[Rfam]
RNA sequence: GGGGCAUAUGAUGAGAAUCUGCAUCCAAUCUCACAACGGUCGUCUGAGACACUUAGUGUGUCAUGUUGCAACCAUACUUUCUCUGAUGUCU
Dot-bracket structure: (((..............................................(((...)))..............................)))

The family of this 91-nucleotide RNA sequence from Brachypodium distachyon is "Small nucleolar RNA Z161/Z228". The family's consensus secondary structure was predicted with PFOLD. Gene Ontology terms of the family: nucleolus and RNA processing. The family has 11 seed sequences and 630 matches in Rfam 15.1. Its Rfam clan is "SNORD35 clan". It scores 75 bits against the family's covariance model.